Overview:
The record is an 84-nucleotide RNA from Idiomarina xiamenensis, which matches "tRNA" in Rfam. By type it is a transfer RNA. Lineage of the source: Bacteria > Pseudomonadati > Pseudomonadota > Alteromonadales > Idiomarina xiamenensis.

RNA sequence: GCCGAGGUGGCGGAAUUGGUAGACGCAGCGGAUUCAAAAUCCGCCGCUGGUAACAGCGUGGGGGUUCAAGUCCCCCCCUCGGCA
Numbered sequence: 001g002c003c004g005a006g007g008u009g010g011c012g013g014a015a016u017u018g019g020u021a022g023a024c025g026c027a028g029c030g031g032a033u034u035c036a037a038a039a040u041c042c043g044c045c046g047c048u049g050g051u052a053a054c055a056g057c058g059u060g061g062g063g064g065u066u067c068a069a070g071u072c073c074c075c076c077c078c079u080c081g082g083c084a
Base pairs, nucleotide, nucleotide: 001083002082003081004080005079006078007077010026011025012024028044029043030042031041032040060076061075062074063073064072